[Rfam]
RNA sequence: UCGGGCGCGGUGAUUAUAAAAGUAAUUCCUCGUUCUGAAUUCCGAUAUUUAUUGGAUAGGAGGACUUUAUUACACCCAUAGAAUCUGAGCGCU
Numbered sequence: 001u002c003g004g005g006c007g008c009g010g011u012g013a014u015u016a017u018a019a020a021a022g023u024a025a026u027u028c029c030u031c032g033u034u035c036u037g038a039a040u041u042c043c044g045a046u047a048u049u050u051a052u053u054g055g056a057u058a059g060g061a062g063g064a065c066u067u068u069a070u071u072a073c074a075c076c077c078a079u080a081g082a083a084u085c086u087g088a089g090c091g092c093u
Base pairs, nucleotide, nucleotide: 003093004092006091007090
A member of the RNA family "Small nucleolar RNA snoR8a" from Zostera marina, 93 nucleotides long. For this family Rfam cites "Multiple snoRNA gene clusters from Arabidopsis" (Brown et al., RNA, 2001). A search with the family's covariance model found it, with a score of 64 bits. The organism belongs to Zostera, within Eukaryota. The family's RNA type in Rfam is C/D-box small nucleolar RNA.